A member of the RNA family "Glycine riboswitch aptamer" from Chitinilyticum piscinae, 91 nucleotides long.
RNA sequence: GCGCUGGAUGCAGGAGAGCGUGCUGACAGCAGCACCACCGAAGGCGCAACGUCACCCGGAAUCGCUCAGGUAAACGGACUGUAUCCGGCAC
Numbered sequence: 001g002c003g004c005u006g007g008a009u010g011c012a013g014g015a016g017a018g019c020g021u022g023c024u025g026a027c028a029g030c031a032g033c034a035c036c037a038c039c040g041a042a043g044g045c046g047c048a049a050c051g052u053c054a055c056c057c058g059g060a061a062u063c064g065c066u067c068a069g070g071u072a073a074a075c076g077g078a079c080u081g082u083a084u085c086c087g088g089c090a091c
Base pairs, nucleotide, nucleotide: 006086007085008084009083010082011081012080013079020035021034022033023032037071038070039069040067041066044065045064046063050058051057